[Rfam]
RNA sequence: UUAGUAUUAUAAGUAUGUCCCAUUCAAUAUUUGGGAUAUACUCAUAUUAAAA
Numbered sequence: 001u002u003a004g005u006a007u008u009a010u011a012a013g014u015a016u017g018u019c020c021c022a023u024u025c026a027a028u029a030u031u032u033g034g035g036a037u038a039u040a041c042u043c044a045u046a047u048u049a050a051a052a
Stems, first nucleotide, its partner, number of pairs: 006048001008046003012042001014040003018036004022031001
RNA: mir-1302 microRNA precursor family